[Rfam]
RNA sequence: CACUGGUCAAGAUAACACAGAGACUGAGUUUCGGUGGUUUGCGAGUGUAUGAGGUAAGCGCCGCGGCCUGCUCUCCCCCGCCUGCCCUGAGCCCGGGUAGCGGCUCGUCCUGACCCUGGGCCUCUGUCUCCCUCAGCUCGAAACCGUUGCCGUCCUCCGGUGUCACAGUCUGUUGCUUGACCGCUUGAGACGCCUGACUGGUCUCUGAGCGCCUGGCCGACAGCGCCGGCAAGAUGAAGCUCUCCGUGGUGGUGGUGGCGGCGCUU
Numbered sequence: 001c002a003c004u005g006g007u008c009a010a011g012a013u014a015a016c017a018c019a020g021a022g023a024c025u026g027a028g029u030u031u032c033g034g035u036g037g038u039u040u041g042c043g044a045g046u047g048u049a050u051g052a053g054g055u056a057a058g059c060g061c062c063g064c065g066g067c068c069u070g071c072u073c074u075c076c077c078c079c080g081c082c083u084g085c086c087c088u089g090a091g092c093c094c095g096g097g098u099a100g101c102g103g104c105u106c107g108u109c110c111u112g113a114c115c116c117u118g119g120g121c122c123u124c125u126g127u128c129u130c131c132c133u134c135a136g137c138u139c140g141a142a143a144c145c146g147u148u149g150c151c152g153u154c155c156u157c158c159g160g161u162g163u164c165a166c167a168g169u170c171u172g173u174u175g176c177u178u179g180a181c182c183g184c185u186u187g188a189g190a191c192g193c194c195u196g197a198c199u200g201g202u203c204u205c206u207g208a209g210c211g212c213c214u215g216g217c218c219g220a221c222a223g224c225g226c227c228g229g230c231a232a233g234a235u236g237a238a239g240c241u242c243u244c245c246g247u248g249g250u251g252g253u254g255g256u257g258g259c260g261g262c263g264c265u266u
Base pairs, nucleotide, nucleotide: 004255006253007252008251009250015163016162017161018160020158030118033115034114035113058106060104061103062102063101064100066098167177168176169175

The family of this 266-nucleotide RNA from Nannospalax galili is "bip internal ribosome entry site (IRES)".
This family represents the bip internal ribosome entry site (IRES). BiP protein expression has been found to be significantly enhanced by the heat shock response due to IRES-dependent translation.
The literature on the family includes a 2002 paper in Biochem Biophys Res Commun by Kim and Jang, "Continuous heat shock enhances translational initiation directed by internal ribosomal entry site".
The family has 9 seed sequences and 234 matches in Rfam 15.1.
A search with the family's covariance model found it, with a score of 135 bits.
Taxonomically the source falls in Nannospalax (Eukaryota, Deuterostomia, Sarcopterygii, Eutheria).